[Rfam]
RNA sequence: CAGGCGGUAUUCUUAGAAGCUGCACUGUUGAAGAAUGAAUGACACAUUGCAAAUGGUUGGAAAUGCACACUCUGCUCUGAGCCGUAGGGACCGAGACAGAAGG
Number, nucleotide and partner (000 for none) at each position: 001c027002a026003g025004g023005c022006g021007g020008u019009a000010u018011u017012c000013u000014u000015a000016g000017a011018a010019g008020c007021u006022g005023c004024a000025c003026u002027g001028u000029u000030g000031a000032a000033g000034a000035a000036u000037g000038a000039a000040u000041g000042a000043c000044a000045c000046a000047u000048u000049g000050c000051a000052a000053a000054u000055g000056g000057u000058u000059g000060g000061a000062a000063a000064u000065g000066c000067a000068c000069a000070c000071u000072c099073u098074g097075c095076u094077c093078u000079g091080a000081g000082c089083c088084g000085u000086a000087g000088g083089g082090a000091c079092c000093g077094a076095g075096a000097c074098a073099g072100a000101a000102g000103g000
RNA: pan motif